Shown here is a 38-nucleotide RNA sequence from Kluyvera cryocrescens, a member of the family "JUMPstart RNA".
The match comes from Rfam's covariance-model search (55 bits).
Rfam classes the family as a cis-regulatory element.
NCBI's taxonomy places the organism under Bacteria, Gammaproteobacteria, Enterobacterales, Enterobacteriaceae, Kluyvera.

RNA sequence: AGGUGAAUUGGUAGCUGAAAGCCAAGGGCGGUAGCGUG
Numbered sequence: 001a002g003g004u005g006a007a008u009u010g011g012u013a014g015c016u017g018a019a020a021g022c023c024a025a026g027g028g029c030g031g032u033a034g035c036g037u038g
Stems, first nucleotide, its partner, number of pairs: 008025005